[Rfam]
Nucleotides: 075
Base pairs, nucleotide, nucleotide: 003075004074005073006072007071011025012024014022041068042067044066045065046064047063048062049061050060051059
Number, partner (000 for none) and nucleotide at each position: 001000g002000c003075g004074c005073a006072u007071c008000c009000a010000a011025u012024a013000a014022g015000a016000a017000u018000u019000g020000a021000a022014c023000c024012u025011a026000c027000a028000a029000a030000u031000u032000c033000a034000c035000c036000a037000g038000u039000u040000a041068u042067g043000a044066g045065u046064u047063g048062g049061g050060u051059g052000c053000u054000u055000u056000a057000a058000c059051c060050a061049u062048u063047c064046a065045a066044c067042c068041g069000c070000a071007g072006a073005u074004g075003c
Rfam assigns this 75-nucleotide RNA sequence from Striga hermonthica to the family "Plastid-ycf2 5UTR RNA". The base pairs follow the family's consensus structure, which was predicted with LocARNA. For this family Rfam cites "Retrograde signaling in plants: A critical review focusing on the GUN pathway and beyond" (Richter et al., Plant Commun, 2023). The family's RNA type in Rfam is cis-regulatory element. The organism belongs to Striga, within Eukaryota. About the family: Plastid ycf2 is a non-coding RNA (ncRNA) recognised in plastids. It was found in the prime untranslated region (5UTR) of ycf2 genes, it presents a tRNA-like motif which suggests it can be involved in mRNA maturation, particularly involved in defining the precise 5' end of the transcript.